[Rfam]
RNA sequence: CGAGUCGGCUAUGCGGCAGCGGCGCGGCUAUACGCGCUGAGGAAAGUCCGAGCAUCAUAGAGCAGGGUAGUUGAUAACGUCAACCGAGGGUGACCUCCGAGCUAGUGCAACAGAAAUAUACCGCCGCUUUCGGGCGGCAAGGGUGGAAAGGCGAGGUAAGAGCUCACCGGGGCAGUCGUGAGGCUGCCGCCAUGUAAACCUUACCCGAUGCAACGCCAAUGGCAGCAAGCAGACCAAUGGCUGCUCGUCAGGGCUGCGGCUGUAGGCGGCUGGAGGCGUAUGGCAACAUGCGUCCAAGAUAGAUUGCCGCACACGACAAAACUCGGCUUACAGGUCGGCUCGCGCU
Numbered sequence: 001c002g003a004g005u006c007g008g009c010u011a012u013g014c015g016g017c018a019g020c021g022g023c024g025c026g027g028c029u030a031u032a033c034g035c036g037c038u039g040a041g042g043a044a045a046g047u048c049c050g051a052g053c054a055u056c057a058u059a060g061a062g063c064a065g066g067g068u069a070g071u072u073g074a075u076a077a078c079g080u081c082a083a084c085c086g087a088g089g090g091u092g093a094c095c096u097c098c099g100a101g102c103u104a105g106u107g108c109a110a111c112a113g114a115a116a117u118a119u120a121c122c123g124c125c126g127c128u129u130u131c132g133g134g135c136g137g138c139a140a141g142g143g144u145g146g147a148a149a150g151g152c153g154a155g156g157u158a159a160g161a162g163c164u165c166a167c168c169g170g171g172g173c174a175g176u177c178g179u180g181a182g183g184c185u186g187c188c189g190c191c192a193u194g195u196a197a198a199c200c201u202u203a204c205c206c207g208a209u210g211c212a213a214c215g216c217c218a219a220u221g222g223c224a225g226c227a228a229g230c231a232g233a234c235c236a237a238u239g240g241c242u243g244c245u246c247g248u249c250a251g252g253g254c255u256g257c258g259g260c261u262g263u264a265g266g267c268g269g270c271u272g273g274a275g276g277c278g279u280a281u282g283g284c285a286a287c288a289u290g291c292g293u294c295c296a297a298g299a300u301a302g303a304u305u306g307c308c309g310c311a312c313a314c315g316a317c318a319a320a321a322c323u324c325g326g327c328u329u330a331c332a333g334g335u336c337g338g339c340u341c342g343c344g345c346u
Stems, first nucleotide, its partner, number of pairs: 001342010012311007020039007044329003048326005053210004060246004065206005070084005085099001086097004100201002105199002107195003121142002123138006150168002153165003170190001171188007214268004222257005238250004275294008
RNA: Bacterial RNase P class A
Organism: Ruminococcus sp. CAG:579